[Rfam]
RNA: mir-146 microRNA precursor family
Organism: Albula goreensis
RNA sequence: AUGAGCGAUGGGCUAUGAGAACUGAAUUCCAUAGAUGGUGGAUAACUAGAGGAAACCCAUCUAUGGACUCAGCUCUUUUUGCCCAGCGCUCCCAA
Dot-bracket structure: ........(.(((....(((.((((.......((((((..................))))))......)))).)))....))).)..........